Rfam assigns this 179-nucleotide sequence from Halobacillus karajensis to the family "Lysine riboswitch aptamer". Lineage of the source: Bacteria > Bacillota > Caryophanales > Bacillaceae > Halobacillus.
RNA sequence: AGUAAGGAUAGAGGUGCAAUGACAUGAGUACGUCCGGCUGAGGAGAAUGAGCUCCUGCGAAGCGGACGGAAAGGGGAAAUUGCCGAAGCGAACGGGAGCUCAUAUCCCCGAUGCUGGUUCUGCUGCUGAACAAGUACAGGACUGUCAUAUAGGAAACUAUAUGGAGGGCUAUCUUACGC
Numbered sequence: 001a002g003u004a005a006g007g008a009u010a011g012a013g014g015u016g017c018a019a020u021g022a023c024a025u026g027a028g029u030a031c032g033u034c035c036g037g038c039u040g041a042g043g044a045g046a047a048u049g050a051g052c053u054c055c056u057g058c059g060a061a062g063c064g065g066a067c068g069g070a071a072a073g074g075g076g077a078a079a080u081u082g083c084c085g086a087a088g089c090g091a092a093c094g095g096g097a098g099c100u101c102a103u104a105u106c107c108c109c110g111a112u113g114c115u116g117g118u119u120c121u122g123c124u125g126c127u128g129a130a131c132a133a134g135u136a137c138a139g140g141a142c143u144g145u146c147a148u149a150u151a152g153g154a155a156a157c158u159a160u161a162u163g164g165a166g167g168g169c170u171a172u173c174u175u176a177c178g179c
Stems, first nucleotide, its partner, number of pairs: 006174006016083005023075001031068006038062002087115004094108004116143007124136004145164007